[Rfam]
RNA sequence: UGCUUCUCAUGAGCACCUAUCUGUCUAAUAGUGACAGUGUAAGGAUUCGCAUGACAAGCAGAGUGAAGUCACAGUUAAACAGGCAGCUUUCUAGGUGGAAGUUGUCCAUGUCUGAUGUGAGACAGUU
Numbered sequence: 001u002g003c004u005u006c007u008c009a010u011g012a013g014c015a016c017c018u019a020u021c022u023g024u025c026u027a028a029u030a031g032u033g034a035c036a037g038u039g040u041a042a043g044g045a046u047u048c049g050c051a052u053g054a055c056a057a058g059c060a061g062a063g064u065g066a067a068g069u070c071a072c073a074g075u076u077a078a079a080c081a082g083g084c085a086g087c088u089u090u091c092u093a094g095g096u097g098g099a100a101g102u103u104g105u106c107c108a109u110g111u112c113u114g115a116u117g118u119g120a121g122a123c124a125g126u127u
Stems, first nucleotide, its partner, number of pairs: 003058003007054002013050002016044002021037005069120005087101005
Background: The family of this 127-nucleotide sequence from Gambusia affinis is "Small nucleolar RNA SNORA75". It is annotated as an H/ACA-box small nucleolar RNA. The organism belongs to Gambusia, within Eukaryota. Its family is annotated with RNA processing and nucleolus in the Gene Ontology. It scores 81 bits against the family's covariance model. Rfam 15.1 lists 414 matches to the family in 310 species.